This 93-nucleotide sequence from Orenia metallireducens belongs to the Rfam family "c-di-GMP-I riboswitch aptamer".
Gene Ontology term of the family: cyclic-di-GMP binding.
Lineage of the source: Bacteria > Bacillati > Bacillota > Clostridia > Orenia.
RNA sequence: GAAGUUAAAGGGCAAACUUAUUGAAAAAUAAGGACGCAAAGCUAUGGGUCUAAAGUUAAAGAUAUUGAUAACUAUGAUUGCCAGGUUACAAAU
Numbered sequence: 001g002a003a004g005u006u007a008a009a010g011g012g013c014a015a016a017c018u019u020a021u022u023g024a025a026a027a028a029u030a031a032g033g034a035c036g037c038a039a040a041g042c043u044a045u046g047g048g049u050c051u052a053a054a055g056u057u058a059a060a061g062a063u064a065u066u067g068a069u070a071a072c073u074a075u076g077a078u079u080g081c082c083a084g085g086u087u088a089c090a091a092a093u
Stems, first nucleotide, its partner, number of pairs: 012037002017032006040087004045083003048078003055072004